[Rfam]
RNA sequence: UGGACCAAUUAUGGGAACUGGUGAUAUUAUUAAUUGUAAAUGAUGAAUGUUCCAUGACUCUGAGGUCCAA
Numbered sequence: 001u002g003g004a005c006c007a008a009u010u011a012u013g014g015g016a017a018c019u020g021g022u023g024a025u026a027u028u029a030u031u032a033a034u035u036g037u038a039a040a041u042g043a044u045g046a047a048u049g050u051u052c053c054a055u056g057a058c059u060c061u062g063a064g065g066u067c068c069a070a
Stems, first nucleotide, its partner, number of pairs: 002068005
RNA: Small nucleolar RNA SNORD113/SNORD114 family